[Rfam]
RNA sequence: GUGGGUAGAACUUUGAUUAAUAUUGCUUGAAAAAUAUUAGUCAAAGAUUUUCCCCAUAG
Numbered sequence: 001g002u003g004g005g006u007a008g009a010a011c012u013u014u015g016a017u018u019a020a021u022a023u024u025g026c027u028u029g030a031a032a033a034a035u036a037u038u039a040g041u042c043a044a045a046g047a048u049u050u051u052c053c054c055c056a057u058a059g
Base pairs, nucleotide, nucleotide: 001057002056003055004054005053007051008050009049010048011046012045013044014043015042016041017040018039019038020037021036022035023034024033
The family of this 59-nucleotide sequence from Drosophila melanogaster is "mir-1012 microRNA precursor family". Lineage of the source: Eukaryota > Pancrustacea > Endopterygota > Muscomorpha > Sophophora. Rfam's curators put it in the seed alignment. Its family is annotated with RISC complex and miRNA-mediated post-transcriptional gene silencing in the Gene Ontology. A reference for the family is Kuchenbauer et al. (2008), "In-depth characterization of the microRNA transcriptome in a leukemia progression model", Genome Res. The family's consensus secondary structure was predicted with PFOLD.